[Rfam]
RNA sequence: ACGACGGGACGACCCGUCCGUCCUCUCCCUAUUCCUGCGGGGACGACCCUG
Numbered sequence: 001a002c003g004a005c006g007g008g009a010c011g012a013c014c015c016g017u018c019c020g021u022c023c024u025c026u027c028c029c030u031a032u033u034c035c036u037g038c039g040g041g042g043a044c045g046a047c048c049c050u051g
Base pairs, nucleotide, nucleotide: 003018004017005016006015007014008013038051039050040049041048042047
Background: This 51-nucleotide sequence from Segnochrobactrum spirostomi belongs to the Rfam family "Guanidine-II riboswitch aptamer (mini-ykkC)". About the family: Simpler in structure and has fewer highly conserved nucleotide positions than the ykkC-yxkD leader. A search with the family's covariance model found it, with a score of 41 bits. The base pairs follow the family's consensus structure, which is taken from published work.